[Rfam]
Background:
Shown here is a 107-nucleotide sequence from Aerosticca soli, a member of the family "t44 RNA". This family consists of a number of bacterial RNA genes of between 135 and 170 bases in length. The t44 gene has been identified in several species of enteric bacteria but homologs have also been identified in Pseudomonas and Coxiella species. The t44 gene is found between the map and rpsB genes in all species in the full alignment apart from Shigella flexneri. The function of this RNA is unknown. Taxonomically the source falls in Aerosticca (Bacteria, Pseudomonadati, Pseudomonadota, Gammaproteobacteria). A reference for the family is Tjaden et al. (2002), "Transcriptome analysis of Escherichia coli using high-density oligonucleotide probe arrays", Nucleic Acids Res.
Nucleotides: 107
Base pairs, nucleotide, nucleotide: 023096024095025094026093027092028091029090030089035087036086037085039083040082041081042080043079048078049077050076051075052074053073054072
Number, partner (000 for none) and nucleotide at each position: 001000a002000c003000g004000a005000u006000c007000c008000c009000a010000a011000a012000c013000c014000a015000a016000c017000g018000c019000c020000a021000c022000a023096c024095a025094c026093g027092c028091a029090u030089c031000g032000g033000c034000a035087c036086c037085g038000c039083c040082u041081u042080c043079g044000g045000g046000g047000u048078g049077c050076c051075g052074c053073a054072a055000c056000c057000g058000c059000c060000u061000u062000u063000u064000c065000c066000c067000g068000g069000g070000c071000a072054u073053u074052g075051c076050g077049g078048u079043c080042g081041a082040a083039g084000c085037c086036g087035g088000g089030g090029a091028u092027g093026c094025g095024u096023g097000g098000a099000g100000g101000u102000c103000c104000c105000a106000a107000c